[Rfam]
RNA sequence: AUUUAGCCCUAAUAGAAGCGGCAUCCUCUUGUGUUGCGAUAGCAAAAACAAGAGAUACAGCGGAUAGUAGGUGGGUGU
Number, nucleotide and partner (000 for none) at each position: 001a000002u000003u000004u000005a000006g000007c000008c000009c070010u069011a068012a000013u066014a065015g000016a000017a000018g061019c060020g000021g000022c000023a056024u055025c054026c000027u000028c052029u051030u050031g049032u048033g000034u046035u045036g000037c000038g000039a000040u000041a000042g000043c000044a000045a035046a034047a000048a032049c031050a030051a029052g028053a000054g025055a024056u023057a000058c000059a000060g019061c018062g000063g000064a000065u014066a013067g000068u011069a010070g009071g000072u000073g000074g000075g000076u000077g000078u000
A member of the RNA family "Flavo-1 RNA" from Flavobacterium crassostreae, 78 nucleotides long. The family's RNA type in Rfam is small RNA. The match comes from Rfam's covariance-model search (51 bits).